Shown here is a 131-nucleotide RNA sequence from Streptomyces griseoviridis, a member of the family "Streptomyces-metH RNA". The source organism's lineage runs through Bacteria, Bacillati, Kitasatosporales, Streptomycetaceae and Streptomyces.

[Rfam]
RNA sequence: CUCGUCCGUCACCCGGACGCCGUGCCCGCAGCCGCGCCGACCCGGUUACUCUGGCCGAGUGCGCCCACCGCGGAGAGUUCCACGGGCCACGUGAAGCCGACAGCCGUCGCACAUCAGGGAGCCCCUCCAUG
Number, nucleotide and partner (000 for none) at each position: 001c000002u000003c000004g000005u000006c000007c000008g000009u000010c000011a000012c000013c000014c000015g000016g000017a000018c000019g000020c000021c000022g000023u000024g000025c000026c000027c000028g000029c000030a000031g000032c000033c000034g000035c000036g000037c000038c000039g000040a000041c000042c000043c000044g000045g000046u000047u000048a000049c000050u000051c000052u000053g000054g000055c000056c000057g000058a000059g000060u093061g092062c091063g090064c000065c086066c085067a000068c000069c000070g000071c000072g000073g000074a000075g000076a000077g000078u000079u000080c000081c000082a000083c000084g000085g066086g065087c000088c000089a000090c063091g062092u061093g060094a000095a000096g110097c109098c000099g108100a107101c106102a000103g000104c000105c000106g101107u100108c099109g097110c096111a000112c000113a000114u000115c000116a000117g000118g000119g000120a000121g000122c000123c000124c000125c000126u000127c000128c000129a000130u000131g000
The base pairs follow the family's consensus structure, which is taken from published work. It scores 77 bits against the family's covariance model.